[Rfam]
RNA: lysM-TM7 RNA
RNA sequence: GCCUACCGACAAAUGUCGAAACGGAUAUAAGAAUACCCGUAUGACCUCUGGGUCAUAGGUAUACUACGCUAAUAACAAUUAACAUAACCAUUGGUCGACAAUGUAUCCUGUUCUUGGAAACAAGAAGAAAGACAAAGUAAGGUAGCCGUCUUUGUAGCAAUACAACAGACAGGAG
Numbered sequence: 001g002c003c004u005a006c007c008g009a010c011a012a013a014u015g016u017c018g019a020a021a022c023g024g025a026u027a028u029a030a031g032a033a034u035a036c037c038c039g040u041a042u043g044a045c046c047u048c049u050g051g052g053u054c055a056u057a058g059g060u061a062u063a064c065u066a067c068g069c070u071a072a073u074a075a076c077a078a079u080u081a082a083c084a085u086a087a088c089c090a091u092u093g094g095u096c097g098a099c100a101a102u103g104u105a106u107c108c109u110g111u112u113c114u115u116g117g118a119a120a121c122a123a124g125a126a127g128a129a130a131g132a133c134a135a136a137g138u139a140a141g142g143u144a145g146c147c148g149u150c151u152u153u154g155u156a157g158c159a160a161u162a163c164a165a166c167a168g169a170c171a172g173g174a175g
Base pairs, nucleotide, nucleotide: 003145004144005143006142007141014134015133016132017131023108024107025106026105027104028103111126112125113124114123115122116121148170149169150168153165154163155162156161
Dot-bracket structure: ..(((((......((((.....((((((..........................................................................))))))..((((((....))))))....))))......)))))..(((..((((....))).)..))).....